[Rfam]
RNA sequence: AACUGUCAAUGAUGAUCUUGUUUAAAAAACAAUGGGAAUCUCUCUGAAAAGAGUGAAAGAUAACUUUCUACUGAUGCAGUG
Numbered sequence: 001a002a003c004u005g006u007c008a009a010u011g012a013u014g015a016u017c018u019u020g021u022u023u024a025a026a027a028a029a030c031a032a033u034g035g036g037a038a039u040c041u042c043u044c045u046g047a048a049a050a051g052a053g054u055g056a057a058a059g060a061u062a063a064c065u066u067u068c069u070a071c072u073g074a075u076g077c078a079g080u081g
Stems, first nucleotide, its partner, number of pairs: 002080005
RNA: Small nucleolar RNA SNORD79
Organism: Larimichthys crocea